[Rfam]
RNA sequence: GGUUGAAGUGAUGAUAAUCUUCCACAUAAAAUUAUAUUUAGUGUUGACUGAAUUACAAACUAUAAUUAUCUGAUCAACU
Number, nucleotide and partner (000 for none) at each position: 001g079002g078003u077004u076005g075006a074007a000008g000009u000010g000011a000012u000013g000014a000015u000016a000017a000018u000019c000020u000021u000022c000023c000024a000025c000026a000027u000028a000029a000030a000031a000032u000033u000034a000035u000036a000037u000038u000039u000040a000041g000042u000043g000044u000045u000046g000047a000048c000049u000050g000051a000052a000053u000054u000055a000056c000057a000058a000059a000060c000061u000062a000063u000064a000065a000066u000067u000068a000069u000070c000071u000072g000073a000074u006075c005076a004077a003078c002079u001
RNA: Small nucleolar RNA Z155
Organism: Triticum urartu